[Rfam]
RNA sequence: ACACGAGAAGGGAGGUGGUUCGGGACAUGAUUUCUUACCGGACGCGUGAGGUGACUGCGGGCUAGCGCCCGUCGUCUCGCGAUACGCGAUGCCGGCGGUUCCGCCGGCCAAUCCCAGGCAGUCACCCGAUCCGUGGGCCGCCGAGUCGUCCGGCUCGGCCGCCACGCUCGCGCCGCACGGU
Numbered sequence: 001a002c003a004c005g006a007g008a009a010g011g012g013a014g015g016u017g018g019u020u021c022g023g024g025a026c027a028u029g030a031u032u033u034c035u036u037a038c039c040g041g042a043c044g045c046g047u048g049a050g051g052u053g054a055c056u057g058c059g060g061g062c063u064a065g066c067g068c069c070c071g072u073c074g075u076c077u078c079g080c081g082a083u084a085c086g087c088g089a090u091g092c093c094g095g096c097g098g099u100u101c102c103g104c105c106g107g108c109c110a111a112u113c114c115c116a117g118g119c120a121g122u123c124a125c126c127c128g129a130u131c132c133g134u135g136g137g138c139c140g141c142c143g144a145g146u147c148g149u150c151c152g153g154c155u156c157g158g159c160c161g162c163c164a165c166g167c168u169c170g171c172g173c174c175g176c177a178c179g180g181u
Base pairs, nucleotide, nucleotide: 015058016057017056018055019054060109061108062107063106065104066103069098070097071096072095073094074093127175128174132172133171134170135169136168137167138166141158142157143156144155145154146153